A member of the RNA family "Glycine riboswitch aptamer" from Ferrimonas aestuarii, 94 nucleotides long. The match comes from Rfam's covariance-model search (65 bits). NCBI's taxonomy places the organism under Bacteria, Gammaproteobacteria, Alteromonadales, Ferrimonadaceae, Ferrimonas.
[Rfam]
RNA sequence: GGACGGGCCUCUGGAGAGUUCCAUUGACUUGGACGCCGAAGGCGCAAGCGUUGAAAAACGUCAAACGCUCAGGCAAAAGGACAGGGUGCGUAAC
Numbered sequence: 001g002g003a004c005g006g007g008c009c010u011c012u013g014g015a016g017a018g019u020u021c022c023a024u025u026g027a028c029u030u031g032g033a034c035g036c037c038g039a040a041g042g043c044g045c046a047a048g049c050g051u052u053g054a055a056a057a058a059c060g061u062c063a064a065a066c067g068c069u070c071a072g073g074c075a076a077a078a079g080g081a082c083a084g085g086g087u088g089c090g091u092a093a094c
Stems, first nucleotide, its partner, number of pairs: 006089001009086005020033004035074003038070002042068003048061004